[Rfam]
RNA sequence: GCCGCGCCUAGGGUAGCUCCCGAAAAGCUGGUUCCCUUACCAGCCUGGCGCGGUUUCUGAUUAAGGG
Dot-bracket structure: ((((((((..(((.....))).....(((((..[[[[[[)))))..)))))))).......]]]]]]
Numbered sequence: 001g002c003c004g005c006g007c008c009u010a011g012g013g014u015a016g017c018u019c020c021c022g023a024a025a026a027g028c029u030g031g032u033u034c035c036c037u038u039a040c041c042a043g044c045c046u047g048g049c050g051c052g053g054u055u056u057c058u059g060a061u062u063a064a065g066g067g
Stems, first nucleotide, its partner, number of pairs: 001054008011021003027044005034067006